This 96-nucleotide sequence from Gemmatimonas groenlandica belongs to the Rfam family "c-di-GMP-I riboswitch aptamer".
Gene Ontology term of the family: cyclic-di-GMP binding.

[Rfam]
RNA sequence: AGCCUGCAAAGGCAAAACCGGCGAAAGCCGGUGACGCAAAGCUACGAGGCUAACGCGACCAAGGAUUCUCGUCGCCAUGCUAGUCGAGCCGCUCAG
Numbered sequence: 001a002g003c004c005u006g007c008a009a010a011g012g013c014a015a016a017a018c019c020g021g022c023g024a025a026a027g028c029c030g031g032u033g034a035c036g037c038a039a040a041g042c043u044a045c046g047a048g049g050c051u052a053a054c055g056c057g058a059c060c061a062a063g064g065a066u067u068c069u070c071g072u073c074g075c076c077a078u079g080c081u082a083g084u085c086g087a088g089c090c091g092c093u094c095a096g
Stems, first nucleotide, its partner, number of pairs: 012037002017032006041089003045086003048081003055075004